[Rfam]
Nucleotides: 236
Base pairs, nucleotide, nucleotide: 006231007230008229009228010227011226016079017078018077019076020075021074022073024071032063033062034061035060036059037058083113084112085111086110087109090107091106092105093104094103114140115139116138117137119136120135121134122133123132124131142221143220144219145218146217
Number, partner (000 for none) and nucleotide at each position: 001000a002000u003000u004000g005000c006231c007230a008229g009228a010227a011226g012000a013000g014000g015000u016079g017078c018077g019076u020075u021074g022073c023000c024071c025000a026000g027000g028000u029000a030000a031000c032063c033062g034061u035060a036059u037058u038000g039000g040000a041000g042000g043000a044000a045000c046000c047000a048000g049000u050000c051000c052000g053000g054000g055000g056000a057000a058037g059036a060035u061034a062033c063032g064000u065000g066000a067000g068000g069000g070000g071024g072000a073022g074021c075020a076019a077018c078017g079016c080000c081000g082000a083113g084112g085111u086110g087109a088000a089000a090107g091106a092105g093104c094103g095000u096000c097000u098000g099000g100000u101000c102000a103094c104093g105092c106091u107090c108000c109087u110086c111085g112084c113083c114140g115139g116138c117137c118000a119136c120135a121134g122133g123132g124131g125000c126000u127000g128000a129000a130000u131124c132123c133122c134121c135120u136119g137117g138116g139115u140114u141000g142221u143220c144219a145218c146217c147000a148000g149000a150000a151000a152000c153000g154000u155000u156000c157000g158000c159000a160000g161000u162000c163000g164000g165000g166000c167000g168000u169000u170000u171000c172000a173000u174000a175000c176000c177000c178000g179000a180000a181000c182000a183000c184000c185000u186000c187000a188000g189000c190000g191000c192000c193000c194000a195000a196000a197000g198000c199000g200000g201000u202000g203000a204000g205000u206000c207000g208000g209000g210000u211000c212000u213000a214000c215000a216000a217146g218145g219144u220143g221142g222000a223000g224000c225000a226011c227010u228009u229008c230007u231006g232000g233000g234000u235000g236000a